[Rfam]
RNA sequence: CACCCGACGUUGGCAAGCGUCUGUAGGGGGCGCGGCUGGAGAUUGGAACAGGGCUGGCCAUGCACAACCCGGGGAAGCACAGGGGCCGGAUGUCGGGGGACAUCCGGCCCCUUUUUU
Numbered sequence: 001c002a003c004c005c006g007a008c009g010u011u012g013g014c015a016a017g018c019g020u021c022u023g024u025a026g027g028g029g030g031c032g033c034g035g036c037u038g039g040a041g042a043u044u045g046g047a048a049c050a051g052g053g054c055u056g057g058c059c060a061u062g063c064a065c066a067a068c069c070c071g072g073g074g075a076a077g078c079a080c081a082g083g084g085g086c087c088g089g090a091u092g093u094c095g096g097g098g099g100a101c102a103u104c105c106g107g108c109c110c111c112u113u114u115u116u117u
Stems, first nucleotide, its partner, number of pairs: 003073004009068004013063002017033005034059006044051001081112014